[Rfam]
RNA: Small nucleolar RNA R38
Organism: Mortierella sp. 14UC
RNA sequence: UGUAGUGAAUGAUGAAGUUUUUUUUUAAUCAGUUAUCCCUGACUUAAUCAACUGUGUCGAGAACUUGAUUUCUGAUAAUAUU
Numbered sequence: 001u002g003u004a005g006u007g008a009a010u011g012a013u014g015a016a017g018u019u020u021u022u023u024u025u026u027a028a029u030c031a032g033u034u035a036u037c038c039c040u041g042a043c044u045u046a047a048u049c050a051a052c053u054g055u056g057u058c059g060a061g062a063a064c065u066u067g068a069u070u071u072c073u074g075a076u077a078a079u080a081u082u
Stems, first nucleotide, its partner, number of pairs: 002081003006077002